This 89-nucleotide RNA sequence from Trifolium subterraneum belongs to the Rfam family "Small nucleolar RNA snoR53Y". Rfam classes the family as a C/D-box small nucleolar RNA. For this family Rfam cites "Multiple snoRNA gene clusters from Arabidopsis" (Brown et al., RNA, 2001).
RNA sequence: GUUCCCAAUGAUUGUUUGCUAAUUUCCUUUACCAUGCUAAUGCUGAUAAUUGAUGAUUAUUAGGUUCAGUUUAUCAUGCUUAGGGAACU
Numbered sequence: 001g002u003u004c005c006c007a008a009u010g011a012u013u014g015u016u017u018g019c020u021a022a023u024u025u026c027c028u029u030u031a032c033c034a035u036g037c038u039a040a041u042g043c044u045g046a047u048a049a050u051u052g053a054u055g056a057u058u059a060u061u062a063g064g065u066u067c068a069g070u071u072u073a074u075c076a077u078g079c080u081u082a083g084g085g086a087a088c089u
Base pairs, nucleotide, nucleotide: 001088002087003086004085005084
Pairs were carried over by alignment from the consensus structure, which was predicted with WAR.